[Rfam]
RNA sequence: ACAGGUGCAAUGAAGAGAAGAGUACAUGAGAGUGACUGUCACAGAGAGCUUCCGUUUCGGUGCAAGGAAGUACAUGAUAUUUCAUGGAAGAUGGCCUCUGAGCAGGUAGCCGAAUAAUUAAGCUGCCCGGGAACACCCGUUACAGUGUUAGAGUAUUCAGGGCCUUGUGCCUGCGUACUUGAAAAGGCAUAUAUCGCGAGGUAUAUGUGAAAUUGGGUGGUAACACGGUACUUCCGUCCCUUAU
Numbered sequence: 001a002c003a004g005g006u007g008c009a010a011u012g013a014a015g016a017g018a019a020g021a022g023u024a025c026a027u028g029a030g031a032g033u034g035a036c037u038g039u040c041a042c043a044g045a046g047a048g049c050u051u052c053c054g055u056u057u058c059g060g061u062g063c064a065a066g067g068a069a070g071u072a073c074a075u076g077a078u079a080u081u082u083c084a085u086g087g088a089a090g091a092u093g094g095c096c097u098c099u100g101a102g103c104a105g106g107u108a109g110c111c112g113a114a115u116a117a118u119u120a121a122g123c124u125g126c127c128c129g130g131g132a133a134c135a136c137c138c139g140u141u142a143c144a145g146u147g148u149u150a151g152a153g154u155a156u157u158c159a160g161g162g163c164c165u166u167g168u169g170c171c172u173g174c175g176u177a178c179u180u181g182a183a184a185a186g187g188c189a190u191a192u193a194u195c196g197c198g199a200g201g202u203a204u205a206u207g208u209g210a211a212a213u214u215g216g217g218u219g220g221u222a223a224c225a226c227g228g229u230a231c232u233u234c235c236g237u238c239c240c241u242u243a244u
Stems, first nucleotide, its partner, number of pairs: 007103002015098003025086006037074003048071006105127006128139003188209007215240003225237004
The record is a 244-nucleotide RNA sequence from Megasphaera micronuciformis, which matches "T-box leader" in Rfam. About the family: Uncharged tRNA acts as the effector for transcription antitermination of genes in the T-box leader family. NCBI's taxonomy places the organism under Bacteria, Bacillati, Bacillota, Megasphaera, Megasphaera micronuciformis. Rfam classes the family as a cis-regulatory leader.